DUF3800-XI RNA: a 46-nucleotide RNA.
From the family's description: Actinobacteria, Firmicutes, Proteobacteria, Spirochaetes (1 example).
By type it is a small RNA.
RNA sequence: CGGGCUGGCCGUGAGGUCUGGUUCACCAACAGCGGGGAAAUUCCCC
Number, nucleotide and partner (000 for none) at each position: 001c000002g024003g023004g022005c021006u020007g018008g017009c016010c015011g000012u000013g000014a000015g010016g009017u008018c007019u000020g006021g005022u004023u003024c002025a000026c000027c000028a000029a000030c000031a000032g000033c000034g000035g000036g000037g000038a000039a000040a000041u000042u000043c000044c000045c000046c000